[Rfam]
RNA sequence: CAAGGCGAACGACCCCCACGCUGUAACGGGAUGAUCACAAGAAUUGUCGUAAUCCCAUCCAUGUGAUGGCGUGUUGGACGCGGGUUCGAAUCCCGCCAGCUCCACCAGGAGCGCACUAAGCAACAGUUGGCACGGCGCAUAGUCCAUGACGCGAAAGCGGUAGCCGAAAUUAGUGCUCUCCCCCUGGGGCUGUAUCGGUCUCGACAGCGCGCAGCAGCGGAAGAUGGCGGCACGGUAGGCGACGACCGUAAAUCGAGCAAAAGCAGAAAUGCAAACGACGCAGAAUUCAAGGUCGCGGCUUACGCCUAAGACUUUGUGAGGAAAGGCCCGCGCCUUAUCACCGAAUGGCGGGCCACCAAUUCGCAGUUA
Numbered sequence: 001c002a003a004g005g006c007g008a009a010c011g012a013c014c015c016c017c018a019c020g021c022u023g024u025a026a027c028g029g030g031a032u033g034a035u036c037a038c039a040a041g042a043a044u045u046g047u048c049g050u051a052a053u054c055c056c057a058u059c060c061a062u063g064u065g066a067u068g069g070c071g072u073g074u075u076g077g078a079c080g081c082g083g084g085u086u087c088g089a090a091u092c093c094c095g096c097c098a099g100c101u102c103c104a105c106c107a108g109g110a111g112c113g114c115a116c117u118a119a120g121c122a123a124c125a126g127u128u129g130g131c132a133c134g135g136c137g138c139a140u141a142g143u144c145c146a147u148g149a150c151g152c153g154a155a156a157g158c159g160g161u162a163g164c165c166g167a168a169a170u171u172a173g174u175g176c177u178c179u180c181c182c183c184c185u186g187g188g189g190c191u192g193u194a195u196c197g198g199u200c201u202c203g204a205c206a207g208c209g210c211g212c213a214g215c216a217g218c219g220g221a222a223g224a225u226g227g228c229g230g231c232a233c234g235g236u237a238g239g240c241g242a243c244g245a246c247c248g249u250a251a252a253u254c255g256a257g258c259a260a261a262a263g264c265a266g267a268a269a270u271g272c273a274a275a276c277g278a279c280g281c282a283g284a285a286u287u288c289a290a291g292g293u294c295g296c297g298g299c300u301u302a303c304g305c306c307u308a309a310g311a312c313u314u315u316g317u318g319a320g321g322a323a324a325g326g327c328c329c330g331c332g333c334c335u336u337a338u339c340a341c342c343g344a345a346u347g348g349c350g351g352g353c354c355a356c357c358a359a360u361u362c363g364c365a366g367u368u369a
Base pairs, nucleotide, nucleotide: 045232046231047230048229049228055227056226058224059223062219063218064217070211071210072209073208074207075206076205080096081095082094083093084092097192098191099190100189101188102187103186233248234247235246236245320335321334326353327352328351329350330349331348356366360365
RNA: Betaproteobacteria transfer-messenger RNA